Annotation:
TPP riboswitch aptamer (THI element): a 145-nucleotide RNA sequence from Brenneria goodwinii. It scores 64 bits against the family's covariance model. The family has 115 seed sequences and 16,130 matches in Rfam 15.1. The base pairs follow the family's consensus structure, which is taken from published work. NCBI's taxonomy places the organism under Bacteria, Pseudomonadati, Gammaproteobacteria, Pectobacteriaceae, Brenneria. Gene Ontology term of the family: thiamine pyrophosphate binding.
Nucleotides: 145
Base pairs, nucleotide, nucleotide: 006133007132008131009130010129011095012094013093014092016089017072018071019070020069079088080087101126102125103124107120108119109118110117
Number, partner (000 for none) and nucleotide at each position: 001000g002000c003000u004000a005000u006133c007132u008131u009130g010129u011095c012094g013093g014092a015000g016089u017072g018071c019070c020069u021000a022000g023000c024000g025000c026000g027000u028000u029000u030000c031000c032000g033000u034000u035000u036000g037000u038000u039000g040000u041000u042000u043000c044000u045000u046000u047000u048000c049000a050000a051000c052000a053000a054000g055000c056000a057000a058000u059000g060000a061000a062000a063000a064000u065000g066000c067000a068000c069020g070019g071018g072017c073000u074000g075000a076000g077000a078000c079088c080087g081000u082000u083000a084000a085000u086000u087080c088079g089016g090000g091000a092014u093013c094012c095011g096000c097000g098000g099000a100000a101126c102125c103124u104000g105000a106000u107120c108119g109118g110117g111000u112000u113000a114000a115000u116000a117110c118109c119108u120107g121000c122000g123000a124103a125102g126101g127000g128000a129010a130009c131008a132007a133006g134000a135000g136000u137000a138000a139000u140000a141000u142000g143000c144000c145000u